[Rfam]
RNA sequence: GCCACGUGAUCUGAAUCAGUUUCUCUGAAAAGUCUUGACGAAUGCUGGUCAGUAGCAUGUUAGAGUUCUGAUGGCA
Number, nucleotide and partner (000 for none) at each position: 001g075002c074003c073004a072005c000006g000007u000008g000009a000010u000011c000012u000013g000014a000015a000016u000017c000018a000019g000020u000021u000022u000023c000024u000025c000026u000027g000028a000029a000030a000031a000032g000033u000034c000035u000036u000037g000038a000039c000040g000041a000042a000043u000044g000045c000046u000047g000048g000049u000050c000051a000052g000053u000054a000055g000056c000057a000058u000059g000060u000061u000062a000063g000064a000065g000066u000067u000068c000069u000070g000071a000072u004073g003074g002075c001076a000
Record summary
Rfam assigns this 76-nucleotide RNA sequence from Pelusios castaneus to the family "Small nucleolar RNA SNORD28". Gene Ontology terms of the family: RNA processing and nucleolus. Rfam classes the family as a C/D-box small nucleolar RNA. Rfam 15.1 lists 229 matches to the family in 149 species. A search with the family's covariance model found it, with a score of 55 bits. On this family, see Tycowski et al., Nature 1996: "A mammalian gene with introns instead of exons generating stable RNA products".